[Rfam]
RNA sequence: GUCGGGUUCGGGAUGAAGUGGUUGAUCACACCACCGAACACCGCGUACGUGCGCUUGCCGUCGUUGAGCAUCUGCACCCCGCGGCUGCGGAACUCCUU
Numbered sequence: 001g002u003c004g005g006g007u008u009c010g011g012g013a014u015g016a017a018g019u020g021g022u023u024g025a026u027c028a029c030a031c032c033a034c035c036g037a038a039c040a041c042c043g044c045g046u047a048c049g050u051g052c053g054c055u056u057g058c059c060g061u062c063g064u065u066g067a068g069c070a071u072c073u074g075c076a077c078c079c080c081g082c083g084g085c086u087g088c089g090g091a092a093c094u095c096c097u098u
Stems, first nucleotide, its partner, number of pairs: 006039006014033002018029004043054004079090004
Mycobacterium sRNA Ms_AS-1: a 98-nucleotide sequence from Mycolicibacterium gilvum. The sequence is in the family's curated seed alignment. A reference for the family is Li et al. (2013), "Identification of small RNAs in Mycobacterium smegmatis using heterologous Hfq", RNA.